[Rfam]
Bacterial large subunit ribosomal RNA: a 540-nucleotide part of an RNA from Selenomonas sputigena. NCBI's taxonomy places the organism under Bacteria, Bacillati, Bacillota, Selenomonas, Selenomonas sputigena. Rfam's curators put it in the seed alignment. For this family Rfam cites "Crystal structure of the ribosome at 5.5 A resolution" (Yusupov et al., Science, 2001).
RNA sequence: UACGAAAGGCAUACGGUGGAUGCCUUGGCGUCAGGAGUCGAAGAAGGACGCGAUAAGCUGCGAAAAGCCGUGGGGAGCCGCAAAUAGGCCUCGAGCCACGGAUGUCCGAAUGGGGCAACCCAGUGCGAGUCAUGUCGCACUACCCGAAAGGGAGACAAACCCGGUGAACUGAAACAUCUAAGUAGCCGGAGGAAAAGUAAUCAAACGAGAUUCCCUCAGUAGCGGCGAGCGAAGCGGGAAGAGCCCAAACCGAAAGCUUUCGGGCUUUCGGGGUUGAGGACCAGCACAAAGGGAAAGCAGUCUAGUGGAACGGCAUGGGAAGGCCGGGCGAAGAGAGUGAGACCCUCGUACACGAAAGGCUGAAGAACGGGCUGGAAUCCAGAGUACCACGGGACACGAGGAACCCUGUGGGAAGCCGGGUGGACCACCAUCCAAGGCAAAAUACUACCUGACGACCGAUAGAGGAAAGUACCGUGAGGGAAAGGCGAAAAGAACCGCGGGAGCGGAGUGAAAUAGAACCUGAAACCGUAUGUCCACAAG
Numbered sequence: 001u002a003c004g005a006a007a008g009g010c011a012u013a014c015g016g017u018g019g020a021u022g023c024c025u026u027g028g029c030g031u032c033a034g035g036a037g038u039c040g041a042a043g044a045a046g047g048a049c050g051c052g053a054u055a056a057g058c059u060g061c062g063a064a065a066a067g068c069c070g071u072g073g074g075g076a077g078c079c080g081c082a083a084a085u086a087g088g089c090c091u092c093g094a095g096c097c098a099c100g101g102a103u104g105u106c107c108g109a110a111u112g113g114g115g116c117a118a119c120c121c122a123g124u125g126c127g128a129g130u131c132a133u134g135u136c137g138c139a140c141u142a143c144c145c146g147a148a149a150g151g152g153a154g155a156c157a158a159a160c161c162c163g164g165u166g167a168a169c170u171g172a173a174a175c176a177u178c179u180a181a182g183u184a185g186c187c188g189g190a191g192g193a194a195a196a197g198u199a200a201u202c203a204a205a206c207g208a209g210a211u212u213c214c215c216u217c218a219g220u221a222g223c224g225g226c227g228a229g230c231g232a233a234g235c236g237g238g239a240a241g242a243g244c245c246c247a248a249a250c251c252g253a254a255a256g257c258u259u260u261c262g263g264g265c266u267u268u269c270g271g272g273g274u275u276g277a278g279g280a281c282c283a284g285c286a287c288a289a290a291g292g293g294a295a296a297g298c299a300g301u302c303u304a305g306u307g308g309a310a311c312g313g314c315a316u317g318g319g320a321a322g323g324c325c326g327g328g329c330g331a332a333g334a335g336a337g338u339g340a341g342a343c344c345c346u347c348g349u350a351c352a353c354g355a356a357a358g359g360c361u362g363a364a365g366a367a368c369g370g371g372c373u374g375g376a377a378u379c380c381a382g383a384g385u386a387c388c389a390c391g392g393g394a395c396a397c398g399a400g401g402a403a404c405c406c407u408g409u410g411g412g413a414a415g416c417c418g419g420g421u422g423g424a425c426c427a428c429c430a431u432c433c434a435a436g437g438c439a440a441a442a443u444a445c446u447a448c449c450u451g452a453c454g455a456c457c458g459a460u461a462g463a464g465g466a467a468a469g470u471a472c473c474g475u476g477a478g479g480g481a482a483a484g485g486c487g488a489a490a491a492g493a494a495c496c497g498c499g500g501g502a503g504c505g506g507a508g509u510g511a512a513a514u515a516g517a518a519c520c521u522g523a524a525a526c527c528g529u530a531u532g533u534c535c536a537c538a539a540g
Stems, first nucleotide, its partner, number of pairs: 008534009022520001023485002027457002029454007036446002038155002046107003049062003068101006077089003112121003122141007143152003160191001161189005171178002201208002211442001212239004222230002243438003250271007278380002281375005293368001298362006305353003311326004329333001335347003387411007418433005472479002495506004